The record is a 146-nucleotide RNA sequence from Quercus lobata, which matches "Small nucleolar RNA snoR136" in Rfam.
Pairs were carried over by alignment from the consensus structure, which was predicted with mfold.
RNA sequence: AGGGCUUUAUAUUAUUUGGAUAGCUUAAUUUGGCUUACACUAAAUUGUGUGUGUGCAGCUAUGUUUAAUUGAAGCCCAAAUAUACGUUCUCCUCGCUAUCCAAUGCAACCUUUUAUGUUGUAUUUGGACGUUGGAGAUCUACAUGC
Numbered sequence: 001a002g003g004g005c006u007u008u009a010u011a012u013u014a015u016u017u018g019g020a021u022a023g024c025u026u027a028a029u030u031u032g033g034c035u036u037a038c039a040c041u042a043a044a045u046u047g048u049g050u051g052u053g054u055g056c057a058g059c060u061a062u063g064u065u066u067a068a069u070u071g072a073a074g075c076c077c078a079a080a081u082a083u084a085c086g087u088u089c090u091c092c093u094c095g096c097u098a099u100c101c102a103a104u105g106c107a108a109c110c111u112u113u114u115a116u117g118u119u120g121u122a123u124u125u126g127g128a129c130g131u132u133g134g135a136g137a138u139c140u141a142c143a144u145g146c
Stems, first nucleotide, its partner, number of pairs: 002077004008071002016067001020064002031061005036055001039054002086139001088137005094130002099128005108118002